[Rfam]
The family of this 95-nucleotide RNA from Aquifex aeolicus is "Selenocysteine transfer RNA".
Rfam's curators put it in the seed alignment.
NCBI's taxonomy places the organism under Bacteria, Pseudomonadati, Aquificota, Aquifex, Aquifex aeolicus.

RNA sequence: GGGAGAGGUUGGCCGGCUGGUGCCGCCCCGGGACUUCAAAUCCCGUGGGAGGUCCCGCAAGGGAGCUCCGGAGGGUUCGAUUCCCUCCCUCUCCC
Numbered sequence: 001g002g003g004a005g006a007g008g009u010u011g012g013c014c015g016g017c018u019g020g021u022g023c024c025g026c027c028c029c030g031g032g033a034c035u036u037c038a039a040a041u042c043c044c045g046u047g048g049g050a051g052g053u054c055c056c057g058c059a060a061g062g063g064a065g066c067u068c069c070g071g072a073g074g075g076u077u078c079g080a081u082u083c084c085c086u087c088c089c090u091c092u093c094c095c
Stems, first nucleotide, its partner, number of pairs: 001095008012027001014025004029045005048069004072086004